[Rfam]
RNA sequence: UAUUGCUAACCAGCACGGGCGUAGGAGUUUCUCCACGCCCGUGCUCUCAUGUUAAGGGCAAGAACGAUGGC
Numbered sequence: 001u002a003u004u005g006c007u008a009a010c011c012a013g014c015a016c017g018g019g020c021g022u023a024g025g026a027g028u029u030u031c032u033c034c035a036c037g038c039c040c041g042u043g044c045u046c047u048c049a050u051g052u053u054a055a056g057g058g059c060a061a062g063a064a065c066g067a068u069g070g071c
Stems, first nucleotide, its partner, number of pairs: 013044009024034003